About this RNA
Rfam assigns this 413-nucleotide sequence from Dyadobacter psychrotolerans to the family "Bacterial RNase P class A".

RNA sequence: GGAAUAAGCUGUUCUACCGCCGCGGCCUUGUGCCGGGGAGGAAAGUCCGGGCAGCGCAGAGUGCCGUACUUCCUAACGGGAAGGCAGCAGGACAGAGAUGACCGGCUGACAGCAAGUGCCACAGAAAAUUAAACCGCCUGGCAUGUUUUUUAUGUGUGAGGUAAGGGUGAAAAGGUGGAGUAAGAGACCACCGCCUGUUUGGGUAACCAACGGGGCACGGUAAACCUUACGGGCUGAAAGAUCAAAUAGGUGUUAGUUUGCGGGGCUACUCGUCUCCGUUCUGAAAAAGAGCAUUAACACGGGUAGAUCGUUAGAGGUUUCGGGCGACCGGAAUCCUGGAUAAAUGGUAGAAGUCCUGUAUCGAUGCAAAUCGGUUUGGGAGACAGAAUCCGGCUUACAGGCUUAUUUUUUUU
Numbered sequence: 001g002g003a004a005u006a007a008g009c010u011g012u013u014c015u016a017c018c019g020c021c022g023c024g025g026c027c028u029u030g031u032g033c034c035g036g037g038g039a040g041g042a043a044a045g046u047c048c049g050g051g052c053a054g055c056g057c058a059g060a061g062u063g064c065c066g067u068a069c070u071u072c073c074u075a076a077c078g079g080g081a082a083g084g085c086a087g088c089a090g091g092a093c094a095g096a097g098a099u100g101a102c103c104g105g106c107u108g109a110c111a112g113c114a115a116g117u118g119c120c121a122c123a124g125a126a127a128a129u130u131a132a133a134c135c136g137c138c139u140g141g142c143a144u145g146u147u148u149u150u151u152a153u154g155u156g157u158g159a160g161g162u163a164a165g166g167g168u169g170a171a172a173a174g175g176u177g178g179a180g181u182a183a184g185a186g187a188c189c190a191c192c193g194c195c196u197g198u199u200u201g202g203g204u205a206a207c208c209a210a211c212g213g214g215g216c217a218c219g220g221u222a223a224a225c226c227u228u229a230c231g232g233g234c235u236g237a238a239a240g241a242u243c244a245a246a247u248a249g250g251u252g253u254u255a256g257u258u259u260g261c262g263g264g265g266c267u268a269c270u271c272g273u274c275u276c277c278g279u280u281c282u283g284a285a286a287a288a289g290a291g292c293a294u295u296a297a298c299a300c301g302g303g304u305a306g307a308u309c310g311u312u313a314g315a316g317g318u319u320u321c322g323g324g325c326g327a328c329c330g331g332a333a334u335c336c337u338g339g340a341u342a343a344a345u346g347g348u349a350g351a352a353g354u355c356c357u358g359u360a361u362c363g364a365u366g367c368a369a370a371u372c373g374g375u376u377u378g379g380g381a382g383a384c385a386g387a388a389u390c391c392g393g394c395u396u397a398c399a400g401g402c403u404u405a406u407u408u409u410u411u412u413u
Base pairs, nucleotide, nucleotide: 001409002408003407004406005405006404007403008402009401010400011398012352013351014350015349016348017347018346020038021037023035024034025033026032043396044395045394047393048392049391050390051389052236053235054234055233062284064232065231066230067229068228069083070082071081072080073079084110085108086107087106088105111227112226116225117224118221119220120219134166135165136162137161138160139159141157142156143155144154145153146152174192175191176190177189178188193216194214195213196212197211198210200209201208202207240309241308242307243306250300251299252298253297254296255295278292279291280290281289282288316335317334318333319332320331321330322329323328